[Rfam]
The record is a 76-nucleotide RNA from Crocodylus porosus, which matches "Mammalian CPEB3 ribozyme" in Rfam.
RNA sequence: GGUUGCAAGUUUGAAGCCAAAGCAGAAGCACCCACGGUGCGGUCUGUCAGAUCCCAAUUAAUCUGCAAAUUCUGUU
Numbered sequence: 001g002g003u004u005g006c007a008a009g010u011u012u013g014a015a016g017c018c019a020a021a022g023c024a025g026a027a028g029c030a031c032c033c034a035c036g037g038u039g040c041g042g043u044c045u046g047u048c049a050g051a052u053c054c055c056a057a058u059u060a061a062u063c064u065g066c067a068a069a070u071u072c073u074g075u076u
Stems, first nucleotide, its partner, number of pairs: 013044001016043003021076007028040003048065005
The mammalian CPEB3 ribozyme is a self cleaving RNA located in the second intron of the CPEB3 gene which belongs to a family of genes regulating messenger RNA polyadenylation. This ribozyme is highly conserved and found only in mammals. The CPEB3 ribozyme is structurally and biochemically related to the human hepatitis delta virus (HDV) ribozyme and the HDV ribozyme is proposed to have arisen from the human transcriptome. There is currently only one other known self cleaving ribozyme in mammals, the CoTC motif. A search with the family's covariance model found it, with a score of 43 bits.